[Rfam]
RNA sequence: AAGCCAGCCAAUGAAUCUGCUUACCUGAAUGUGUUCCUGUAGGAACUUAGGAAAAGCUGGUGAUAGUAAAGACAUGUUACGAGCCUUAAAGACAUUGAAGUCAUUAAGGCCCCUGAAAAUGGCUAUAAGA
Numbered sequence: 001a002a003g004c005c006a007g008c009c010a011a012u013g014a015a016u017c018u019g020c021u022u023a024c025c026u027g028a029a030u031g032u033g034u035u036c037c038u039g040u041a042g043g044a045a046c047u048u049a050g051g052a053a054a055a056g057c058u059g060g061u062g063a064u065a066g067u068a069a070a071g072a073c074a075u076g077u078u079a080c081g082a083g084c085c086u087u088a089a090a091g092a093c094a095u096u097g098a099a100g101u102c103a104u105u106a107a108g109g110c111c112c113c114u115g116a117a118a119a120u121g122g123c124u125a126u127a128a129g130a
Stems, first nucleotide, its partner, number of pairs: 003061005016043005071123001073121002083110007091102003
RNA: Small nucleolar RNA SNORA33